The family of this 262-nucleotide RNA sequence from Blautia sp. An249 is "Bacterial large signal recognition particle RNA". A search with the family's covariance model found it, with a score of 182 bits. Rfam classes the family as a non-coding RNA gene. Taxonomically the source falls in Blautia (Bacteria, Bacillati, Bacillota, Lachnospiraceae).
RNA sequence: CCGCGCAGCCGGGGAGAUAGCGGUGCCCUGUACCUGCAAUCCGCUAUAGCAGGGGUGAUGCCAAUCUGAGGCUUAUUCUCUGCGGAGCUGCCCUUUAUAAGUGGCGCUGACGUCUGGGUCUUACGCAACAGAACUCUGUGAACCGUGUCAGGUCAGGAAUGAAGCAGCACUAAGCAGACCAUUCUGUGUGCCGUAAGGGCGCCUGGAUCGAGUUAACUGUAAAGGUACCGUCCGUGGAAAUAUUUCGAGGUGCGGCGCGCGU
Numbered sequence: 001c002c003g004c005g006c007a008g009c010c011g012g013g014g015a016g017a018u019a020g021c022g023g024u025g026c027c028c029u030g031u032a033c034c035u036g037c038a039a040u041c042c043g044c045u046a047u048a049g050c051a052g053g054g055g056u057g058a059u060g061c062c063a064a065u066c067u068g069a070g071g072c073u074u075a076u077u078c079u080c081u082g083c084g085g086a087g088c089u090g091c092c093c094u095u096u097a098u099a100a101g102u103g104g105c106g107c108u109g110a111c112g113u114c115u116g117g118g119u120c121u122u123a124c125g126c127a128a129c130a131g132a133a134c135u136c137u138g139u140g141a142a143c144c145g146u147g148u149c150a151g152g153u154c155a156g157g158a159a160u161g162a163a164g165c166a167g168c169a170c171u172a173a174g175c176a177g178a179c180c181a182u183u184c185u186g187u188g189u190g191c192c193g194u195a196a197g198g199g200c201g202c203c204u205g206g207a208u209c210g211a212g213u214u215a216a217c218u219g220u221a222a223a224g225g226u227a228c229c230g231u232c233c234g235u236g237g238a239a240a241u242a243u244u245u246c247g248a249g250g251u252g253c254g255g256c257g258c259g260c261g262u
Base pairs, nucleotide, nucleotide: 002261003260004259005258006257008056009055010054011029012028013027014026016024018022033053034052035051036050037049061255062254064251065250066249067248070246071245074242077240079238080237081236082235083234084233085232089227090226093224094223095222096221097220098219101217102216103214104213105212112208113207114206115205116204117203118202119201120197121196122195123194124193125192126188127187129186130185131184132183133182135178136177137176138175139174145170146169147168148167153162154161155160